[Rfam]
RNA sequence: AUUUUAUUGAAUAGGAUAGGCUUAAAAGCCUUGAUACUAAGCACUUUGGGGCAUUAUUCCAAGGUGCUUUUUUUGAUUUU
Numbered sequence: 001a002u003u004u005u006a007u008u009g010a011a012u013a014g015g016a017u018a019g020g021c022u023u024a025a026a027a028g029c030c031u032u033g034a035u036a037c038u039a040a041g042c043a044c045u046u047u048g049g050g051g052c053a054u055u056a057u058u059c060c061a062a063g064g065u066g067c068u069u070u071u072u073u074u075g076a077u078u079u080u
Stems, first nucleotide, its partner, number of pairs: 018080003031075001034072001039069007048060004

Record summary
This 80-nucleotide RNA sequence from Streptococcus pyogenes belongs to the Rfam family "Streptococcus sRNA SpF01". The base pairs follow the family's consensus structure, which was predicted with mfold. By type it is a small RNA. NCBI's taxonomy places the organism under Bacteria, Bacilli, Streptococcaceae, Streptococcus pyogenes, Streptococcus pyogenes serotype M2. The literature on the family includes a 2012 paper in PLoS Pathog by Mann et al., "Control of virulence by small RNAs in Streptococcus pneumoniae".